[Rfam]
RNA: Small nucleolar RNA snoR125
RNA sequence: GGGCGAUGAUUAUAAUGAGAAAGGAAUUUGAGUGGGGAGUGUGAACAAAACACUUGUGGGAUUGAGAGGGAAAAAAAAAAAACCAAAUCGAAAUCGAAGGAGAAAUUUACAUAUGAUUUUUCCCUUUUUUGAUUAUGGGUUCGUUUUCUAUCAUCCCUUACCCUCGAUGACGGUCCAACCAAUUUGUACACUUGAUAUGAGCCCU
Dot-bracket structure: ((((....((((.........(((....((((((.....((....))...)))))).(((.....((.(((((......((.((.((((((((.....(((((((..(....)...)))))))...))))))))..)).))...)))))....)))))...)))..((((.((.....))...)))).....))))....)))).
Numbered sequence: 001g002g003g004c005g006a007u008g009a010u011u012a013u014a015a016u017g018a019g020a021a022a023g024g025a026a027u028u029u030g031a032g033u034g035g036g037g038a039g040u041g042u043g044a045a046c047a048a049a050a051c052a053c054u055u056g057u058g059g060g061a062u063u064g065a066g067a068g069g070g071a072a073a074a075a076a077a078a079a080a081a082a083c084c085a086a087a088u089c090g091a092a093a094u095c096g097a098a099g100g101a102g103a104a105a106u107u108u109a110c111a112u113a114u115g116a117u118u119u120u121u122c123c124c125u126u127u128u129u130u131g132a133u134u135a136u137g138g139g140u141u142c143g144u145u146u147u148c149u150a151u152c153a154u155c156c157c158u159u160a161c162c163c164u165c166g167a168u169g170a171c172g173g174u175c176c177a178a179c180c181a182a183u184u185u186g187u188a189c190a191c192u193u194g195a196u197a198u199g200a201g202c203c204c205u
Stems, first nucleotide, its partner, number of pairs: 001204004009196004022164003029056006040047002058158003066155002069149005080141002083138002086134008099123007108113001167187004172180002